[Rfam]
RNA sequence: UCCCAGUGAAGAAAUGUUCAAGGAUAUUCCUCCUGUCCUAAUCCCAGAUCCUGUAGAGAUGAACUCACUGGGAUUGGCUGGGGAGAGGAGGAAAGUUUGUUACAAAAGGAACUGUCUGAGGGAG
Numbered sequence: 001u002c003c004c005a006g007u008g009a010a011g012a013a014a015u016g017u018u019c020a021a022g023g024a025u026a027u028u029c030c031u032c033c034u035g036u037c038c039u040a041a042u043c044c045c046a047g048a049u050c051c052u053g054u055a056g057a058g059a060u061g062a063a064c065u066c067a068c069u070g071g072g073a074u075u076g077g078c079u080g081g082g083g084a085g086a087g088g089a090g091g092a093a094a095g096u097u098u099g100u101u102a103c104a105a106a107a108g109g110a111a112c113u114g115u116c117u118g119a120g121g122g123a124g
Stems, first nucleotide, its partner, number of pairs: 001123004
Rfam assigns this 124-nucleotide RNA sequence from Suricata suricatta to the family "Small nucleolar RNA SNORD22". Pairs were carried over by alignment from the consensus structure, which was predicted with PFOLD.